[Rfam]
RNA: FMN riboswitch aptamer (RFN element)
Organism: Actinomyces sp. oral taxon 448
RNA sequence: UCGUGUGUUCUGGGGUCGGUGGAAGUCCGAACCGGCGGUGAUGAGUCCGCGACCCGGUCGCAAGCGACCGGUUGACCAGGUGGAAAUCCUGGACCGACGGUGAGAGUCCGGAUGGGAAGCACGCACGA
Numbered sequence: 001u002c003g004u005g006u007g008u009u010c011u012g013g014g015g016u017c018g019g020u021g022g023a024a025g026u027c028c029g030a031a032c033c034g035g036c037g038g039u040g041a042u043g044a045g046u047c048c049g050c051g052a053c054c055c056g057g058u059c060g061c062a063a064g065c066g067a068c069c070g071g072u073u074g075a076c077c078a079g080g081u082g083g084a085a086a087u088c089c090u091g092g093a094c095c096g097a098c099g100g101u102g103a104g105a106g107u108c109c110g111g112a113u114g115g116g117a118a119g120c121a122c123g124c125a126c127g128a
Base pairs, nucleotide, nucleotide: 003126004125005124006123007122008121010119017029018028019027031107032106033096034095035050036049037048038047045094046093054071055070076092077091078090079089080088098110099109100108